[Rfam]
RNA sequence: CCUUUGACACAUUGUAAGUCGCUCUGGAUAAGAGCGUCUGCUAAAUGACUUAAA
Numbered sequence: 001c002c003u004u005u006g007a008c009a010c011a012u013u014g015u016a017a018g019u020c021g022c023u024c025u026g027g028a029u030a031a032g033a034g035c036g037u038c039u040g041c042u043a044a045a046u047g048a049c050u051u052a053a054a
Base pairs, nucleotide, nucleotide: 013043014041015040016039020036021035022034023033024032025031
RNA: UnaL2 LINE 3' element